Small nucleolar RNA SNORA51: a 131-nucleotide sequence from Spermophilus dauricus. The match comes from Rfam's covariance-model search (100 bits). Rfam describes the family as follows. ACA51 is a member of the H/ACA class of snoRNA that guide the sites of modification of uridines to pseudouridines.
RNA sequence: GACCUCCUGGUGCUUACCACAGGCUGUGUUUUUAUGCUGAGUAUAUACAAAAGGGAGGCAGAGAAAACCUAUCCUAUAGACACCCCAGCCCAGGCCUCCUGUCUGGACUGUAUUGUGAAUGGGGGCUGUGG
Numbered sequence: 001g002a003c004c005u006c007c008u009g010g011u012g013c014u015u016a017c018c019a020c021a022g023g024c025u026g027u028g029u030u031u032u033u034a035u036g037c038u039g040a041g042u043a044u045a046u047a048c049a050a051a052a053g054g055g056a057g058g059c060a061g062a063g064a065a066a067a068c069c070u071a072u073c074c075u076a077u078a079g080a081c082a083c084c085c086c087a088g089c090c091c092a093g094g095c096c097u098c099c100u101g102u103c104u105g106g107a108c109u110g111u112a113u114u115g116u117g118a119a120u121g122g123g124g125g126c127u128g129u130g131g
Base pairs, nucleotide, nucleotide: 003058004057005056006055007054008053021042026037027036028035029034072124073123074122075121076120077119086110087109088108090106091105092104093103094102095101